Bacterial RNase P class B: a 361-nucleotide RNA from Latilactobacillus sakei. From the family's description: Ribonuclease P (RNase P) is a ubiquitous endoribonuclease, found in archaea, bacteria and eukarya as well as chloroplasts and mitochondria. The family's consensus secondary structure is taken from published work. By type it is a ribozyme. A reference for the family is Frank and Pace (1998), "Ribonuclease P: unity and diversity in a tRNA processing ribozyme", Annu Rev Biochem. NCBI's taxonomy places the organism under Bacteria, Bacillati, Bacilli, Latilactobacillus, Latilactobacillus sakei subsp. sakei.
[Rfam]
Nucleotides: 361
Base pairs, nucleotide, nucleotide: 004361005360006359007357008310009309010308011307012306013305014304016035017034018033019032020031021030040355041354042353044352045351046350047349048348049229051227052226053225054071055070056069057068058067059066077224078223079222080221081220082100083099084098085097086096087095101116102114103113104112105111117219118218120157121156122155127149128148129147130146135142136141165217166216167213168212169211182201183200184199185198186197187196188195189194233249234248235247253283254282255281256280257279258278259277284295285294286293287292314338315337316336317335318334319333320332321331322330
Number, partner (000 for none) and nucleotide at each position: 001000a002000a003000u004361c005360u006359u007357g008310a009309g010308u011307a012306a013305u014304c015000g016035c017034g018033g019032u020031c021030u022000a023000c024000a025000u026000c027000a028000g029000u030021a031020g032019g033018c034017u035016g036000a037000g038000g039000a040355a041354g042353g043000u044352c045351c046350a047349u048348g049229c050000c051227c052226g053225c054071a055070c056069a057068g058067g059066c060000u061000g062000a063000g064000a065000u066059g067058c068057u069056u070055g071054u072000a073000g074000u075000g076000u077224u078223c079222g080221u081220g082100c083099c084098u085097g086096g087095c088000c089000c090000a091000a092000u093000a094000a095087g096086c097085c098084a099083g100082g101116g102114u103113a104112c105111c106000u107000u108000a109000a110000u111105g112104g113103u114102a115000a116101c117219g118218g119000c120157g121156g122155a123000a124000a125000a126000a127149g128148c129147g130146c131000u132000a133000a134000a135142a136141c137000u138000u139000c140000g141136g142135u143000c144000a145000u146130g147129c148128g149127u150000u151000a152000a153000u154000a155122u156121c157120c158000u159000u160000a161000a162000a163000u164000a165217g166216u167213g168212c169211c170000a171000c172000a173000g174000u175000g176000a177000c178000g179000g180000a181000g182201c183200g184199u185198u186197u187196g188195g189194g190000g191000a192000a193000a194189c195188c196187c197186a198185a199184a200183c201182g202000a203000u204000g205000g206000a207000a208000c209000g210000a211169g212168g213167u214000a215000a216166a217165c218118c219117c220081c221080g222079c223078g224077a225053g226052c227051g228000a229049g230000u231000a232000a233249c234248c235247c236000a237000a238000a239000c240000u241000u242000u243000g244000g245000u246000a247235g248234g249233g250000g251000c252000g253283u254282c255281u256280c257279a258278u259277u260000u261000a262000u263000g264000g265000a266000a267000a268000u269000g270000a271000a272000c273000u274000a275000a276000a277259a278258a279257u280256g281255a282254g283253a284295g285294u286293u287292c288000g289000a290000a291000a292287g293286a294285a295284c296000a297000g298000a299000u300000a301000g302000a303000u304014g305013a306012u307011u308010a309009c310008u311000g312000a313000a314338g315337g316336a317335g318334c319333u320332u321331u322330c323000u324000u325000c326000c327000u328000g329000g330322g331321g332320a333319a334318g335317u336316u337315c338314u339000g340000g341000a342000a343000c344000a345000a346000a347000a348048c349047a350046u351045g352044g353042c354041c355040u356000a357007u358000a359006g360005a361004g